[Rfam]
RNA sequence: AAAAUUGUCGUCUUCGGCUGAGAGCAGGGCGUGAAUGAAGUCUUGCGGAAUGUCGGCGAACUGGAUCGGGGAGCGACGCAUCUCGCCAAAUUCUGCUAUCAGUUUGCCGUCACUGCUGUAUACCCUCAGGGGAAUCUGCAAUUGCACGUCGCGCAGGGUGUCGACGGAAGGCAGGCCAGGAGCCAGGUACAGAAAGGCGCCACUCAAACUGAGUAGCAGCCCGCAAAAUACGGCUAGGCCAGACCAGGCCAGGAACUUCAGCAGGCGCAUCAGGAUUCGCAGAUUUCCAGAUAA
Numbered sequence: 001a002a003a004a005u006u007g008u009c010g011u012c013u014u015c016g017g018c019u020g021a022g023a024g025c026a027g028g029g030c031g032u033g034a035a036u037g038a039a040g041u042c043u044u045g046c047g048g049a050a051u052g053u054c055g056g057c058g059a060a061c062u063g064g065a066u067c068g069g070g071g072a073g074c075g076a077c078g079c080a081u082c083u084c085g086c087c088a089a090a091u092u093c094u095g096c097u098a099u100c101a102g103u104u105u106g107c108c109g110u111c112a113c114u115g116c117u118g119u120a121u122a123c124c125c126u127c128a129g130g131g132g133a134a135u136c137u138g139c140a141a142u143u144g145c146a147c148g149u150c151g152c153g154c155a156g157g158g159u160g161u162c163g164a165c166g167g168a169a170g171g172c173a174g175g176c177c178a179g180g181a182g183c184c185a186g187g188u189a190c191a192g193a194a195a196g197g198c199g200c201c202a203c204u205c206a207a208a209c210u211g212a213g214u215a216g217c218a219g220c221c222c223g224c225a226a227a228a229u230a231c232g233g234c235u236a237g238g239c240c241a242g243a244c245c246a247g248g249c250c251a252g253g254a255a256c257u258u259c260a261g262c263a264g265g266c267g268c269a270u271c272a273g274g275a276u277u278c279g280c281a282g283a284u285u286u287c288c289a290g291a292u293a294a
Base pairs, nucleotide, nucleotide: 010172011171012170013169014168015167017165019163020162021161024046025045026044027043028042029041030040047084048083050081051080052079054078055077057075058074061070062069086095102159103158104157105155106154107153108148109147110146115142117140118139119138120137122135124132125131126130176290179287180286181285184282186280197268198267199266200265201264203261204260206258207257213239214238218235219234220233222232223231244253245252